[Rfam]
RNA: Small nucleolar RNA R21
Organism: Arabis alpina
RNA sequence: CAUCCCUAUGAUGAUGAUAAUAAAAAAAAUGUUAAAAGUAGUGACUGAUUACAUAUUGACGAAACAAUCAAUUCUGAGGGAUU
Numbered sequence: 001c002a003u004c005c006c007u008a009u010g011a012u013g014a015u016g017a018u019a020a021u022a023a024a025a026a027a028a029a030u031g032u033u034a035a036a037a038g039u040a041g042u043g044a045c046u047g048a049u050u051a052c053a054u055a056u057u058g059a060c061g062a063a064a065c066a067a068u069c070a071a072u073u074c075u076g077a078g079g080g081a082u083u
Base pairs, nucleotide, nucleotide: 002082003081004080005079006078